[Rfam]
Nucleotides: 353
Base pairs, nucleotide, nucleotide: 001316002315003314009313011198012197013196014195016192018191019190020189022085023084024083025082026081027080028079030078031077032074033073034072035071036070037069038068039067040066046062047061048060049059050058051057089185090184092181093180094179095178100174101173102172103171104170105169106168107151111147112146113145114144115143116142117141118140122133123132124131159166160165203244204243205242206241207240208239212238213237217233218232219231220230255312256311257310258309259308260307263290264289265288266287267286268285269284270283271282272281273280274279294301295300318345319344320343327338328337329336330335
Number, partner (000 for none) and nucleotide at each position: 001316g002315g003314c004000g005000u006000a007000a008000a009313g010000c011198g012197c013196a014195c015000g016192u017000a018191g019190g020189c021000g022085g023084a024083c025082u026081u027080u028079u029000a030078a031077g032074u033073c034072a035071g036070g037069u038068g039067u040066g041000a042000a043000a044000u045000c046062c047061c048060a049059g050058g051057g052000c053000u054000c055000a056000a057051c058050c059049c060048u061047g062046g063000a064000a065000c066040u067039g068038c069037a070036u071035u072034u073033g074032a075000a076000a077031c078030u079028g080027g081026a082025a083024g084023u085022c086000u087000a088000g089185a090184g091000a092181c093180c094179a095178g096000g097000a098000g099000a100174g101173g102172u103171u104170a105169g106168c107151g108000g109000a110000a111147u112146a113145c114144c115143g116142a117141g118140u119000g120000u121000a122133g123132a124131g125000g126000u127000g128000a129000a130000a131124u132123u133122c134000g135000u136000a137000g138000a139000u140118a141117u142116u143115c144114g145113g146112u147111g148000g149000a150000a151107c152000a153000c154000c155000a156000g157000u158000g159166g160165c161000g162000a163000a164000g165160g166159c167000g168106g169105c170104u171103a172102a173101c174100u175000g176000g177000a178095c179094u180093g181092g182000u183000a184090c185089u186000g187000a188000c189020g190019c191018u192016g193000a194000g195014g196013u197012g198011c199000g200000a201000a202000a203244g204243u205242g206241u207240g208239g209000g210000g211000a212238g213237c214000a215000a216000a217233c218232a219231g220230g221000a222000u223000u224000a225000g226000a227000u228000a229000c230220c231219c232218u233217g234000g235000u236000a237213g238212u239208c240207c241206a242205c243204a244203c245000c246000g247000u248000a249000a250000a251000c252000g253000a254000u255312g256311a257310g258309a259308g260307c261000u262000a263290g264289u265288u266287g267286u268285u269284g270283g271282c272281a273280g274279g275000c276000a277000u278000g279274c280273c281272u282271g283270u284269c285268a286267g287266u288265g289264a290263c291000g292000c293000a294301g295300c296000u297000a298000a299000c300295g301294c302000a303000u304000u305000a306000a307260g308259c309258u310257c311256u312255c313009c314003g315002c316001c317000u318345g319344g320343g321000g322000a323000g324000u325000a326000c327338g328337g329336c330335c331000g332000c333000a334000a335330g336329g337328u338327u339000a340000a341000a342000a343320c344319u345318c346000a347000a348000a349000g350000a351000a352000a353000u
The record is a 353-nucleotide part of an RNA from Hyphomonas chukchiensis, which matches "Bacterial small subunit ribosomal RNA" in Rfam. Clan: SSU clan. Pairs were carried over by alignment from the consensus structure, which is taken from published work. The source organism's lineage runs through Bacteria, Pseudomonadota, Alphaproteobacteria, Hyphomonadaceae and Hyphomonas. It scores 1536 bits against the family's covariance model.